Glycine riboswitch aptamer: an 89-nucleotide sequence from Paracoccus methylarcula. Clan: Glycine riboswitch clan. A search with the family's covariance model found it, with a score of 60 bits.
[Rfam]
RNA sequence: UCACGGAAUUCGGGAGAAUCCGGCCCCGGCCGGUGCCGAAGGAGCAGCCGCCCCGGCGAACUCUCAGGCAAAAGGACCGUUUUCCGUGA
Numbered sequence: 001u002c003a004c005g006g007a008a009u010u011c012g013g014g015a016g017a018a019u020c021c022g023g024c025c026c027c028g029g030c031c032g033g034u035g036c037c038g039a040a041g042g043a044g045c046a047g048c049c050g051c052c053c054c055g056g057c058g059a060a061c062u063c064u065c066a067g068g069c070a071a072a073a074g075g076a077c078c079g080u081u082u083u084c085c086g087u088g089a
Base pairs, nucleotide, nucleotide: 006084007083008082011079012078013077020033021032022031023030035069036068037067038065039064042063043062044061047057048056